A member of the RNA family "Mammalian CPEB3 ribozyme" from Crocodylus porosus, 76 nucleotides long.
The match comes from Rfam's covariance-model search (59 bits).
The mammalian CPEB3 ribozyme is a self cleaving RNA located in the second intron of the CPEB3 gene which belongs to a family of genes regulating messenger RNA polyadenylation. This ribozyme is highly conserved and found only in mammals. The CPEB3 ribozyme is structurally and biochemically related to the human hepatitis delta virus (HDV) ribozyme and the HDV ribozyme is proposed to have arisen from the human transcriptome.
NCBI's taxonomy places the organism under Eukaryota, Chordata, Sarcopterygii, Longirostres, Crocodylus.
RNA sequence: AUUGCAAAUUUGAGGACACAACAGAAGUGCUCAUGUCAUGACCCUGUCAGAUUUCAGCAAAUCUGUGAAUUCUGCU
Numbered sequence: 001a002u003u004g005c006a007a008a009u010u011u012g013a014g015g016a017c018a019c020a021a022c023a024g025a026a027g028u029g030c031u032c033a034u035g036u037c038a039u040g041a042c043c044c045u046g047u048c049a050g051a052u053u054u055c056a057g058c059a060a061a062u063c064u065g066u067g068a069a070u071u072c073u074g075c076u
Base pairs, nucleotide, nucleotide: 014043015042017040020076022074023073024072025071026070027039028038029037048065049064050063051062052061053060054059